[Rfam]
RNA sequence: UUAUAAUGAUGGUAACAUUUUUUGUCAGCAGCAGUUCACCUGCUGAGUUACUUUGGGUCUGAGUGA
Numbered sequence: 001u002u003a004u005a006a007u008g009a010u011g012g013u014a015a016c017a018u019u020u021u022u023u024g025u026c027a028g029c030a031g032c033a034g035u036u037c038a039c040c041u042g043c044u045g046a047g048u049u050a051c052u053u054u055g056g057g058u059c060u061g062a063g064u065g066a
Stems, first nucleotide, its partner, number of pairs: 002065003008026004